[Rfam]
RNA sequence: UGGCUAAGGUGUUGGCUCGGGCUCCCCACUGCAGUUACCCUCCCCUCGGCGUUACUGAGCACUGGGGGCUUUCGGGCUCUGCGUCUGCAC
Numbered sequence: 001u002g003g004c005u006a007a008g009g010u011g012u013u014g015g016c017u018c019g020g021g022c023u024c025c026c027c028a029c030u031g032c033a034g035u036u037a038c039c040c041u042c043c044c045c046u047c048g049g050c051g052u053u054a055c056u057g058a059g060c061a062c063u064g065g066g067g068g069c070u071u072u073c074g075g076g077c078u079c080u081g082c083g084u085c086u087g088c089a090c
Stems, first nucleotide, its partner, number of pairs: 003088002007086006014079001015077005020070003024067005030061003033056003037052002039049002
This 90-nucleotide RNA from Homo sapiens belongs to the Rfam family "mir-637 microRNA precursor family". Rfam's curators put it in the seed alignment. The family's consensus secondary structure was predicted with RNAalifold.